The record is an 88-nucleotide sequence from Sorghum bicolor, which matches "Small nucleolar RNA Z162" in Rfam. Rfam 15.1 lists 146 matches to the family in 75 species. Its family is annotated with RNA processing and nucleolus in the Gene Ontology. The family's RNA type in Rfam is C/D-box small nucleolar RNA. Pairs were carried over by alignment from the consensus structure, which was predicted with PFOLD. The sequence is in the family's curated seed alignment. Taxonomically the source falls in Sorghum (Eukaryota, Euphyllophyta, Mesangiospermae, Poaceae).
[Rfam]
RNA sequence: UUGGGCACAAUGAGGAGUUAAUUUUGCUAAUGUAUCUCCGAGGCCAGAAGGUCAAUGAUUCUUAUGUCCUUUUCAUUCUGAGUGCCCU
Numbered sequence: 001u002u003g004g005g006c007a008c009a010a011u012g013a014g015g016a017g018u019u020a021a022u023u024u025u026g027c028u029a030a031u032g033u034a035u036c037u038c039c040g041a042g043g044c045c046a047g048a049a050g051g052u053c054a055a056u057g058a059u060u061c062u063u064a065u066g067u068c069c070u071u072u073u074c075a076u077u078c079u080g081a082g083u084g085c086c087c088u
Stems, first nucleotide, its partner, number of pairs: 004086005010076005043052003